RNA sequence: UAGGUAGGCGUGGGCGAUCCUUUCGGAAUGGCAAUAAGUCAUGCAAUGGCCGCAGGCAUGGGCGGAGUACGUACUGCCGGAGAUCUGGUAGCACGUAUGC
Numbered sequence: 001u002a003g004g005u006a007g008g009c010g011u012g013g014g015c016g017a018u019c020c021u022u023u024c025g026g027a028a029u030g031g032c033a034a035u036a037a038g039u040c041a042u043g044c045a046a047u048g049g050c051c052g053c054a055g056g057c058a059u060g061g062g063c064g065g066a067g068u069a070c071g072u073a074c075u076g077c078c079g080g081a082g083a084u085c086u087g088g089u090a091g092c093a094c095g096u097a098u099g100c
Base pairs, nucleotide, nucleotide: 010035011034013032015030016029018026019025074091075090076089077088079086080085
RNA: Pyrrolysine insertion sequence mtbB